RNA sequence: UUGAGAGGGUCAAGCAGCGUAAAAGGCGCCUGCUAGUGGGAGCCCAGAGCUCCCGCGACACCGUCAAAUUGCGGGGAGUUCCUAAAGCCGUGUGCUACCAAGCGGGCGCCGAAAGGCAGCCCGUGGCCGGGGUAAUGACCUAGGGUACGGUAAAAACGCACCGGAUGGCACAAUGGAUAAUCCGCAGCCAAGUCCUACGUCGGGCGCCCCCGCGGCGCCGGAUAGGGAUGCAGUUCAACGACUAGAUGGCGGUGGGUCCCGCGCAGAACGCGUCCUGCGCACCUGCGCGGGGCUUAAGAUAUAGUCUUGCCCCCCGUGAAAGCGGACG
Numbered sequence: 001u002u003g004a005g006a007g008g009g010u011c012a013a014g015c016a017g018c019g020u021a022a023a024a025g026g027c028g029c030c031u032g033c034u035a036g037u038g039g040g041a042g043c044c045c046a047g048a049g050c051u052c053c054c055g056c057g058a059c060a061c062c063g064u065c066a067a068a069u070u071g072c073g074g075g076g077a078g079u080u081c082c083u084a085a086a087g088c089c090g091u092g093u094g095c096u097a098c099c100a101a102g103c104g105g106g107c108g109c110c111g112a113a114a115g116g117c118a119g120c121c122c123g124u125g126g127c128c129g130g131g132g133u134a135a136u137g138a139c140c141u142a143g144g145g146u147a148c149g150g151u152a153a154a155a156a157c158g159c160a161c162c163g164g165a166u167g168g169c170a171c172a173a174u175g176g177a178u179a180a181u182c183c184g185c186a187g188c189c190a191a192g193u194c195c196u197a198c199g200u201c202g203g204g205c206g207c208c209c210c211c212g213c214g215g216c217g218c219c220g221g222a223u224a225g226g227g228a229u230g231c232a233g234u235u236c237a238a239c240g241a242c243u244a245g246a247u248g249g250c251g252g253u254g255g256g257u258c259c260c261g262c263g264c265a266g267a268a269c270g271c272g273u274c275c276u277g278c279g280c281a282c283c284u285g286c287g288c289g290g291g292g293c294u295u296a297a298g299a300u301a302u303a304g305u306c307u308u309g310c311c312c313c314c315c316g317u318g319a320a321a322g323c324g325g326a327c328g
Stems, first nucleotide, its partner, number of pairs: 059254005065248002070186006080177003187234002192229004200222002203219006238307001240306005256293011314325004
A member of the RNA family "Group I catalytic intron" from Tolypocladium paradoxum, 328 nucleotides long. The literature on the family includes a 1990 paper in Annu Rev Biochem by Cech, "Self-splicing of group I introns". NCBI's taxonomy places the organism under Eukaryota, Ascomycota, sordariomyceta, Ophiocordycipitaceae, Tolypocladium. Group I catalytic introns are large self-splicing ribozymes. They catalyse their own excision from mRNA, tRNA and rRNA precursors in a wide range of organisms. The core secondary structure consists of 9 paired regions (P1-P9). These fold to essentially two domains - the P4-P6 domain (formed from the stacking of P5, P4, P6 and P6a helices) and the P3-P9 domain (formed from the P8, P3, P7 and P9 helices). The secondary structure mark-up for this family represents only this conserved core. Group I catalytic introns often have long ORFs inserted in loop regions. The window size for this search is chosen to minimise search time and catch the small examples. A larger window size will find more matches.